[Rfam]
RNA: Mason-Pfizer monkey virus packaging signal
Organism: Nannospalax galili
RNA sequence: UGGCGCCCAACGUGGGGCCUGGAUACUGGGGACAACAUGAGGGACAUGACGGAGGAAAAAGGGGUGCGCACCCACUCAAAUAAUUCGGAGACGCCAUGGGAGCCUGCCGCGAUGGAGCCGAAGGUAAGUUGGUCGUUCAAUCAUGGGGCAAGAAUUAAGUCAGCAUCAGAUUUAUGUGAUACAGUUAAGAGAAGCUCUACAGGCAAGAGGAGUAAGGUUAAAACUGAGGAUUUAUUUCAUUUCUUUGAUUUUGUAAAGGACAUUUGUCCCU
Numbered sequence: 001u002g003g004c005g006c007c008c009a010a011c012g013u014g015g016g017g018c019c020u021g022g023a024u025a026c027u028g029g030g031g032a033c034a035a036c037a038u039g040a041g042g043g044a045c046a047u048g049a050c051g052g053a054g055g056a057a058a059a060a061g062g063g064g065u066g067c068g069c070a071c072c073c074a075c076u077c078a079a080a081u082a083a084u085u086c087g088g089a090g091a092c093g094c095c096a097u098g099g100g101a102g103c104c105u106g107c108c109g110c111g112a113u114g115g116a117g118c119c120g121a122a123g124g125u126a127a128g129u130u131g132g133u134c135g136u137u138c139a140a141u142c143a144u145g146g147g148g149c150a151a152g153a154a155u156u157a158a159g160u161c162a163g164c165a166u167c168a169g170a171u172u173u174a175u176g177u178g179a180u181a182c183a184g185u186u187a188a189g190a191g192a193a194g195c196u197c198u199a200c201a202g203g204c205a206a207g208a209g210g211a212g213u214a215a216g217g218u219u220a221a222a223a224c225u226g227a228g229g230a231u232u233u234a235u236u237u238c239a240u241u242u243c244u245u246u247g248a249u250u251u252u253g254u255a256a257a258g259g260a261c262a263u264u265u266g267u268c269c270c271u
Base pairs, nucleotide, nucleotide: 006031007030008029012026013025014024036048037047038046082125084123085121086120092114095111097109098108099107134148136147137146138145139144156199157198159195160194207246208245209244210243211242212241215233216232217231218230219229256271258269259268260267261266